[Rfam]
RNA: c-di-AMP riboswitch aptamer (ydaO/yuaA leader)
RNA sequence: UUGAAUAACAAGCCGAAUUUCUUAAUGAAAACGGGGGAACCAUGAGUUUAGGGGUGAAUUCAUCCAAGCCGCAUAUGGCUGGAUGAUAGGGUGCCUGUACAUCCGAAUCCGUCAGCUAACCUCGUAGGCUUUGUUACAGGAACCU
Numbered sequence: 001u002u003g004a005a006u007a008a009c010a011a012g013c014c015g016a017a018u019u020u021c022u023u024a025a026u027g028a029a030a031a032c033g034g035g036g037g038a039a040c041c042a043u044g045a046g047u048u049u050a051g052g053g054g055u056g057a058a059u060u061c062a063u064c065c066a067a068g069c070c071g072c073a074u075a076u077g078g079c080u081g082g083a084u085g086a087u088a089g090g091g092u093g094c095c096u097g098u099a100c101a102u103c104c105g106a107a108u109c110c111g112u113c114a115g116c117u118a119a120c121c122u123c124g125u126a127g128g129c130u131u132u133g134u135u136a137c138a139g140g141a142a143c144c145u
Base pairs, nucleotide, nucleotide: 011130012129013128014127018030019029020028031125032124033123034122035121036120041051052110053109054108060086061085062084063083064082065081066080089104090103091102092101